A member of the RNA family "small nucleolar RNA snoR114" from Digitaria exilis, 89 nucleotides long. A search with the family's covariance model found it, with a score of 72 bits. For this family Rfam cites "Mining small RNA sequencing data: a new approach to identify small nucleolar RNAs in Arabidopsis" (Chen and Wu, Nucleic Acids Res, 2009).
RNA sequence: GAGCGAUGACGGAUUUCUGUGCUUCCGUGAUUGGUUGGGUCCAUCACAGCCGUCUGAUUCCACAGACGAUAAGUCGCACAUCUGAGCUC
Numbered sequence: 001g002a003g004c005g006a007u008g009a010c011g012g013a014u015u016u017c018u019g020u021g022c023u024u025c026c027g028u029g030a031u032u033g034g035u036u037g038g039g040u041c042c043a044u045c046a047c048a049g050c051c052g053u054c055u056g057a058u059u060c061c062a063c064a065g066a067c068g069a070u071a072a073g074u075c076g077c078a079c080a081u082c083u084g085a086g087c088u089c
Stems, first nucleotide, its partner, number of pairs: 001089004